[Rfam]
The family of this 158-nucleotide sequence from Paenibacillus sp. TCA20 is "c-di-AMP riboswitch aptamer (ydaO/yuaA leader)". NCBI's taxonomy places the organism under Bacteria, Bacilli, Caryophanales, Paenibacillaceae, Paenibacillus. Gene Ontology terms of the family: regulation of gene expression and cyclic-di-AMP binding.
RNA sequence: UUUAUUUAUGCGCUGAAUUUUUGUUGAUCCAAAAAGCGGGGGACCCAGAUGUGGAUGCAUUGAUCCAUGGGGUGAAUUUCAUGGCUAUUGUCAUGAAUAGGGCAAUCUCUCUUGUCCGAAUCCGACAGCUAACCUCGUAAGCGUAACAAAGGGAGAGG
Numbered sequence: 001u002u003u004a005u006u007u008a009u010g011c012g013c014u015g016a017a018u019u020u021u022u023g024u025u026g027a028u029c030c031a032a033a034a035a036g037c038g039g040g041g042g043a044c045c046c047a048g049a050u051g052u053g054g055a056u057g058c059a060u061u062g063a064u065c066c067a068u069g070g071g072g073u074g075a076a077u078u079u080c081a082u083g084g085c086u087a088u089u090g091u092c093a094u095g096a097a098u099a100g101g102g103c104a105a106u107c108u109c110u111c112u113u114g115u116c117c118g119a120a121u122c123c124g125a126c127a128g129c130u131a132a133c134c135u136c137g138u139a140a141g142c143g144u145a146a147c148a149a150a151g152g153g154a155g156a157g158g
Base pairs, nucleotide, nucleotide: 011143012142013141014140018035019034020033021032022031023030036138037137038136039135040134041133046069047068070123071122072121078097079096080095081094082093083092100117101116102115103114